[Rfam]
RNA sequence: CUGUUGGUAGACCACUAGCGAGGUAUAGAGUUCCUACGUGACUUUGUACUGUAGGAACUUCAUACCGUGCUCUUGGAAUAACCAGA
Number, nucleotide and partner (000 for none) at each position: 001c000002u000003g000004u000005u000006g000007g000008u000009a000010g000011a000012c076013c075014a074015c000016u000017a071018g070019c069020g068021a000022g066023g065024u064025a063026u062027a000028g060029a059030g058031u057032u056033c055034c054035u053036a052037c051038g000039u000040g000041a000042c000043u000044u000045u000046g000047u000048a000049c000050u000051g037052u036053a035054g034055g033056a032057a031058c030059u029060u028061c000062a026063u025064a024065c023066c022067g000068u020069g019070c018071u017072c000073u000074u014075g013076g012077a000078a000079u000080a000081a000082c000083c000084a000085g000086a000
RNA: mir-276 microRNA precursor family